[Rfam]
RNA sequence: GGAUAUUUGAGAGGAGCUGCCCCUAGUACGAGAGGACCGGGGUGGACGUACCUCUGGUGGACCUGUUGUCACGCCCGUGGCACUGCAGGGUAGCUAAGUACGGACGGGAUAACCGCUGAAAGCAUCUAAGCGGGAAGCCCCCCUCAAAACCAGAUAUCCCUUGAGAGCCGUGGAAGACCACCACGUUGAUAGGCUGGAGGUGGAAGUAUGGCAACAUAUGGAGCUGACCAGUACUAAUCACUCGAUCG
Numbered sequence: 001g002g003a004u005a006u007u008u009g010a011g012a013g014g015a016g017c018u019g020c021c022c023c024u025a026g027u028a029c030g031a032g033a034g035g036a037c038c039g040g041g042g043u044g045g046a047c048g049u050a051c052c053u054c055u056g057g058u059g060g061a062c063c064u065g066u067u068g069u070c071a072c073g074c075c076c077g078u079g080g081c082a083c084u085g086c087a088g089g090g091u092a093g094c095u096a097a098g099u100a101c102g103g104a105c106g107g108g109a110u111a112a113c114c115g116c117u118g119a120a121a122g123c124a125u126c127u128a129a130g131c132g133g134g135a136a137g138c139c140c141c142c143c144u145c146a147a148a149a150c151c152a153g154a155u156a157u158c159c160c161u162u163g164a165g166a167g168c169c170g171u172g173g174a175a176g177a178c179c180a181c182c183a184c185g186u187u188g189a190u191a192g193g194c195u196g197g198a199g200g201u202g203g204a205a206g207u208a209u210g211g212c213a214a215c216a217u218a219u220g221g222a223g224c225u226g227a228c229c230a231g232u233a234c235u236a237a238u239c240a241c242u243c244g245a246u247c248g
Stems, first nucleotide, its partner, number of pairs: 001159008011145004017045007047102005055096003062089005067082006106140003113133005162245001165243003169185005190236003193232005199225002206219005